Rfam assigns this 131-nucleotide sequence from Clytia hemisphaerica to the family "U4 spliceosomal RNA". The match comes from Rfam's covariance-model search (94 bits). U4 small nuclear RNA (U4 snRNA) is a component of the major U2-dependent spliceosome. By type it is a spliceosomal small nuclear RNA. Rfam links the family to the GO terms spliceosomal tri-snRNP complex assembly and U4 snRNP. The source organism's lineage runs through Eukaryota, Eumetazoa, Hydroidolina, Obeliida and Clytia.
RNA sequence: AGUAUUACAUUACCAUUGACAAUGAGGUUCAACCGAGUCGUGGUUAUUGCUAAUUGAAAACUUUUCCCAAUAUCCCGCUAGACGUCAUGAAACACUGACGGCUAUGCAAUAUUUGGAGGUCUCUUAGGAGA
Numbered sequence: 001a002g003u004a005u006u007a008c009a010u011u012a013c014c015a016u017u018g019a020c021a022a023u024g025a026g027g028u029u030c031a032a033c034c035g036a037g038u039c040g041u042g043g044u045u046a047u048u049g050c051u052a053a054u055u056g057a058a059a060a061c062u063u064u065u066c067c068c069a070a071u072a073u074c075c076c077g078c079u080a081g082a083c084g085u086c087a088u089g090a091a092a093c094a095c096u097g098a099c100g101g102c103u104a105u106g107c108a109a110u111a112u113u114u115g116g117a118g119g120u121c122u123c124u125u126a127g128g129a130g131a
Stems, first nucleotide, its partner, number of pairs: 012044005018039003026034003077107002080103002083100005088094002120131004